[Rfam]
The record is a 173-nucleotide RNA from Tahibacter aquaticus, which matches "Group II catalytic intron D1-D4-3" in Rfam. About the family: Group II introns are found in rRNA, tRNA and mRNA of organelles in fungi, plants and protists, and also in mRNA in bacteria. The organism belongs to Tahibacter, within Bacteria. Pairs were carried over by alignment from the consensus structure. Gene Ontology term of the family: Group II intron splicing. The match comes from Rfam's covariance-model search (39 bits).
RNA sequence: GUGAGGGCGACCGAGCGUGGGUAGGAAGCGUGGAGCGUAGCCGAGGUCGAAUGGACAAGAGCCGGAAAACCGAUGCUGUGCCGAUCAGGACACGCGGGCAAGUGACCGCGAAGCUCUUGCUGUCAAUGAUCGGCGUCAUUAAAUCCGCGAUCGUGUGCUGAAUGCGUGCAUUC
Numbered sequence: 001g002u003g004a005g006g007g008c009g010a011c012c013g014a015g016c017g018u019g020g021g022u023a024g025g026a027a028g029c030g031u032g033g034a035g036c037g038u039a040g041c042c043g044a045g046g047u048c049g050a051a052u053g054g055a056c057a058a059g060a061g062c063c064g065g066a067a068a069a070c071c072g073a074u075g076c077u078g079u080g081c082c083g084a085u086c087a088g089g090a091c092a093c094g095c096g097g098g099c100a101a102g103u104g105a106c107c108g109c110g111a112a113g114c115u116c117u118u119g120c121u122g123u124c125a126a127u128g129a130u131c132g133g134c135g136u137c138a139u140u141a142a143a144u145c146c147g148c149g150a151u152c153g154u155g156u157g158c159u160g161a162a163u164g165c166g167u168g169c170a171u172u173c
Stems, first nucleotide, its partner, number of pairs: 001016002005012002028173001030171003035165002040159001042157002044154001045152005063147004075140001077138001079135007088116002091113001094109004